[Rfam]
Nucleotides: 049
Stems, first nucleotide, its partner, number of pairs: 005036001007035012
Number, partner (000 for none) and nucleotide at each position: 001000c002000g003000a004000u005036a006000a007035a008034a009033a010032u011031c012030u013029g014028a015027u016026u017025a018024c019000a020000a021000g022000a023000u024018g025017u026016a027015g028014u029013c030012a031011g032010a033009u034008u035007u036005u037000u038000u039000u040000a041000g042000g043000a044000a045000a046000a047000u048000g049000u